[Rfam]
The family of this 297-nucleotide part of an RNA from Pyrococcus horikoshii is "Archaeal large subunit ribosomal RNA".
RNA sequence: GGCCGCCUGAGGGGAAGGUGCCCUUAGUACGAGAGGAACAGGGCGCCGCGGCCUCUGGUCUACCGGUUGUCCUCCCGGGCAUAGCCGGGCAGCUACGCCGCAGCCGAUAAGGCCUGAAGGCAUCUAAGGCCGAAGCGGCCCCCGAAAAUAGGCGGCCGUUCCCUGGCAUUUGGGCCUGGGUGACCGGCCCGUAGCCAGGGACGAGGGCUCGGGUAGAAGACCCGGUUGAUGGGGCGGGGAUGUAAGCGGGAAGGGUCAACCGACCCGCUUAGUCUGCCGCUCCCAAUCGCCCGAGGU
Numbered sequence: 001g002g003c004c005g006c007c008u009g010a011g012g013g014g015a016a017g018g019u020g021c022c023c024u025u026a027g028u029a030c031g032a033g034a035g036g037a038a039c040a041g042g043g044c045g046c047c048g049c050g051g052c053c054u055c056u057g058g059u060c061u062a063c064c065g066g067u068u069g070u071c072c073u074c075c076c077g078g079g080c081a082u083a084g085c086c087g088g089g090c091a092g093c094u095a096c097g098c099c100g101c102a103g104c105c106g107a108u109a110a111g112g113c114c115u116g117a118a119g120g121c122a123u124c125u126a127a128g129g130c131c132g133a134a135g136c137g138g139c140c141c142c143c144g145a146a147a148a149u150a151g152g153c154g155g156c157c158g159u160u161c162c163c164u165g166g167c168a169u170u171u172g173g174g175c176c177u178g179g180g181u182g183a184c185c186g187g188c189c190c191g192u193a194g195c196c197a198g199g200g201a202c203g204a205g206g207g208c209u210c211g212g213g214u215a216g217a218a219g220a221c222c223c224g225g226u227u228g229a230u231g232g233g234g235c236g237g238g239g240a241u242g243u244a245a246g247c248g249g250g251a252a253g254g255g256u257c258a259a260c261c262g263a264c265c266c267g268c269u270u271a272g273u274c275u276g277c278c279g280c281u282c283c284c285a286a287u288c289g290c291c292c293g294a295g296g297u
Base pairs, nucleotide, nucleotide: 001157002156003155004154005153006152007151008150011143012142013141014140017047018046019045020044021043022042023041024040048101049100050099051098052097056095057094058093063088064087065086066085067084068081069080070079071078072077104138105137106136111131112130113129114128115127205292206291207290208289209225210224211223212222213221230285231284232283233281234280235279236278237277238275239274240273246268247267248266249265250264253261
Dot-bracket structure: ((((((((..((((..((((((((...............))))))))(((((...(((....((((((((((....)))))..)))))....))).)))))..(((....(((((...........)))))....))).))))......))))))))...............................................(((((((((.......)))))....(((((((((((.....(((((..(.......)..)))))....))).))))).)))...)))).....

Source information
The sequence is in the family's curated seed alignment.